The family of this 153-nucleotide sequence from Xenorhabdus cabanillasii is "STAXI RNA". The family's consensus secondary structure is taken from published work. By type it is a small RNA.
RNA sequence: CGCUACCAUCGAAAUGUAAUUAUCAGUGAUCUGUUCGCCUGUGAGGAUCACCCAUGCGAUGGCGAAACAAAGCUCCCGUAGCCUGCAAGGGAGCGCAUUACUUUGCGGUACAUCUGCGCACUUUUGGAAGCAGAUAUCGUCAGACAAUAGCCC
Numbered sequence: 001c002g003c004u005a006c007c008a009u010c011g012a013a014a015u016g017u018a019a020u021u022a023u024c025a026g027u028g029a030u031c032u033g034u035u036c037g038c039c040u041g042u043g044a045g046g047a048u049c050a051c052c053c054a055u056g057c058g059a060u061g062g063c064g065a066a067a068c069a070a071a072g073c074u075c076c077c078g079u080a081g082c083c084u085g086c087a088a089g090g091g092a093g094c095g096c097a098u099u100a101c102u103u104u105g106c107g108g109u110a111c112a113u114c115u116g117c118g119c120a121c122u123u124u125u126g127g128a129a130g131c132a133g134a135u136a137u138c139g140u141c142a143g144a145c146a147a148u149a150g151c152c153c
Base pairs, nucleotide, nucleotide: 002020004018005017006016028049029048030047031046032045034066035065036064037063038062039061050060052058072094073093074092075091076090078111079110080109082108083107095106096105097104113134114133115132116131117130119150123147124146137144138143